[Rfam]
RNA sequence: CGUUGGUCCUCCAAAGGCCAACACCGAAGAGGCUUGUCCUUCAUUGCCGGGCGUGCGGGGUUUCCCCAAUCGACGGUGUUUUCGGGUCCGGACGUUUCGUCCGCUGUCCUUGGCGUCUCCAUCGCGCCUUGGAUCGCGAACGUUUCAG
Number, nucleotide and partner (000 for none) at each position: 001c000002g022003u021004u020005g019006g018007u017008c016009c000010u000011c000012c000013a000014a000015a000016g008017g007018c006019c005020a004021a003022c002023a000024c000025c000026g000027a000028a000029g000030a000031g048032g047033c046034u000035u000036g000037u000038c000039c000040u000041u000042c000043a000044u000045u000046g033047c032048c031049g000050g000051g000052c000053g000054u000055g127056c126057g125058g000059g000060g000061u000062u000063u000064c000065c000066c000067c000068a000069a000070u000071c000072g000073a000074c000075g089076g088077u000078g000079u000080u000081u000082u000083c000084g000085g000086g000087u000088c076089c075090g000091g000092a000093c000094g000095u000096u000097u000098c000099g107100u106101c000102c000103g000104c000105u000106g100107u099108c000109c000110u000111u000112g000113g000114c000115g000116u000117c000118u000119c000120c000121a000122u000123c000124g000125c057126g056127c055128c000129u000130u000131g000132g000133a000134u000135c000136g000137c000138g000139a000140a000141c000142g000143u000144u000145u000146c000147a000148g000
RNA: speF leader
Organism: Allobosea caraganae